Record summary
Shown here is an 86-nucleotide RNA sequence from Tinamus guttatus, a member of the family "Small nucleolar RNA SNORD127". The base pairs follow the family's consensus structure, which was predicted with WAR. Its family is annotated with nucleolus and RNA processing in the Gene Ontology.
RNA sequence: UGGCAACAAUGAUGACAGAUGUUCCAUCUGCAUGUAAUGUUUCAUUACUACAUGGAGACACUAGUCCCUCUAAACUGAUGUUGCCA
Numbered sequence: 001u002g003g004c005a006a007c008a009a010u011g012a013u014g015a016c017a018g019a020u021g022u023u024c025c026a027u028c029u030g031c032a033u034g035u036a037a038u039g040u041u042u043c044a045u046u047a048c049u050a051c052a053u054g055g056a057g058a059c060a061c062u063a064g065u066c067c068c069u070c071u072a073a074a075c076u077g078a079u080g081u082u083g084c085c086a
Stems, first nucleotide, its partner, number of pairs: 001086007